[Rfam]
RNA: c-di-GMP-I-GGC riboswitch aptamer
Organism: Syntrophobacter fumaroxidans
RNA sequence: UGUGAAAAAGCCAAACCUCCCGCGAGGGGGGGACGGAAAACCGCGGGUCUCACGUAGACGGCCGGGUUGCCUGAA
Numbered sequence: 001u002g003u004g005a006a007a008a009a010g011c012c013a014a015a016c017c018u019c020c021c022g023c024g025a026g027g028g029g030g031g032g033a034c035g036g037a038a039a040a041c042c043g044c045g046g047g048u049c050u051c052a053c054g055u056a057g058a059c060g061g062c063c064g065g066g067u068u069g070c071c072u073g074a075a
Stems, first nucleotide, its partner, number of pairs: 001075001004071001011036002016031006034061001039068004044064003047059003